Rfam assigns this 333-nucleotide sequence from Rousettus aegyptiacus to the family "7SK RNA".
Rfam's curators write: 7SK was discovered as an abundant small nuclear RNA in the mid-70s but a possible function has only recently been suggested. Two independent studies have found that 7SK RNA binds the CDK9/cyclin T complex (known as elongation factor P-TEFb). P-TEFb activates transcription by phosphorylating the C-terminal domain of RNA polymerase II. This process is negatively regulated by the 7SK RNP. The secondary structure of 7SK RNA shown here was proposed by Wasserman and Steitz on the basis of chemical modification and enzymatic cleavage experiments. This family contains a number of annotated pseudogenes and 7SK derived repeats.
Pairs were carried over by alignment from the consensus structure, which is taken from published work.
The match comes from Rfam's covariance-model search (321 bits).
[Rfam]
RNA sequence: AAAUGUGAGGGCGAACGGGCUGCGACAUCUGUCACCCCAUUGAUCGUCAGAGUUGAUUCAGCUGAUCUGGCUGGCUAGGUGAGUGUCCCCUUUCUCCCUCACCACUCCAUGUGUGUCCCUCCCAAAGCUGCACACUUGGUUGAAGAGGAAGACUUUCCCUGAUAGAGGAAAGGACCAUUCUUCGGCCAAGGGUAUACGAGUAGCUGUGCUCCCCUGCUAGAAUCUCCAAACAAGCUCUCAAGGUCCAUUUGUAGGAGAUUGUAGGGUACUCAAGUUUCCAAGACUCCAGACACAUCCAAAUGAGGUGCUGCAUGUGGCAGUCUGCCUUUCUUA
Numbered sequence: 001a002a003a004u005g006u007g008a009g010g011g012c013g014a015a016c017g018g019g020c021u022g023c024g025a026c027a028u029c030u031g032u033c034a035c036c037c038c039a040u041u042g043a044u045c046g047u048c049a050g051a052g053u054u055g056a057u058u059c060a061g062c063u064g065a066u067c068u069g070g071c072u073g074g075c076u077a078g079g080u081g082a083g084u085g086u087c088c089c090c091u092u093u094c095u096c097c098c099u100c101a102c103c104a105c106u107c108c109a110u111g112u113g114u115g116u117c118c119c120u121c122c123c124a125a126a127g128c129u130g131c132a133c134a135c136u137u138g139g140u141u142g143a144a145g146a147g148g149a150a151g152a153c154u155u156u157c158c159c160u161g162a163u164a165g166a167g168g169a170a171a172g173g174a175c176c177a178u179u180c181u182u183c184g185g186c187c188a189a190g191g192g193u194a195u196a197c198g199a200g201u202a203g204c205u206g207u208g209c210u211c212c213c214c215u216g217c218u219a220g221a222a223u224c225u226c227c228a229a230a231c232a233a234g235c236u237c238u239c240a241a242g243g244u245c246c247a248u249u250u251g252u253a254g255g256a257g258a259u260u261g262u263a264g265g266g267u268a269c270u271c272a273a274g275u276u277u278c279c280a281a282g283a284c285u286c287c288a289g290a291c292a293c294a295u296c297c298a299a300a301u302g303a304g305g306u307g308c309u310g311c312a313u314g315u316g317g318c319a320g321u322c323u324g325c326c327u328u329u330c331u332u333a
Stems, first nucleotide, its partner, number of pairs: 003106001005102007013093002018090002024087005030081004035074002037070003042067004046062002116173002118168004122139004127135001140162003147158003203275003210268001212266006224257004230252005299332002302328005307321005